[Rfam]
RNA sequence: UUCCAUCUUCGGGGCAGGGUGAAAUUCCCGACCGACGGUAAGGAGCCAUGCUCUAAGUCCGUGACCUGCAAAGCUAUUCUUGCUUUGUGGCUGAUCUGGUGCAAUUCCAGAACCGACAGUUACAGUCUGGAUGGGAGAAGAUGUCG
Numbered sequence: 001u002u003c004c005a006u007c008u009u010c011g012g013g014g015c016a017g018g019g020u021g022a023a024a025u026u027c028c029c030g031a032c033c034g035a036c037g038g039u040a041a042g043g044a045g046c047c048a049u050g051c052u053c054u055a056a057g058u059c060c061g062u063g064a065c066c067u068g069c070a071a072a073g074c075u076a077u078u079c080u081u082g083c084u085u086u087g088u089g090g091c092u093g094a095u096c097u098g099g100u101g102c103a104a105u106u107c108c109a110g111a112a113c114c115g116a117c118a119g120u121u122a123c124a125g126u127c128u129g130g131a132u133g134g135g136a137g138a139a140g141a142u143g144u145c146g
Base pairs, nucleotide, nucleotide: 004143005142006141007140008139009138010137017029018028019027031126032125033115034114035062036061037060038059057113058112066090067089068088069087095111096110097109098108099107117129118128119127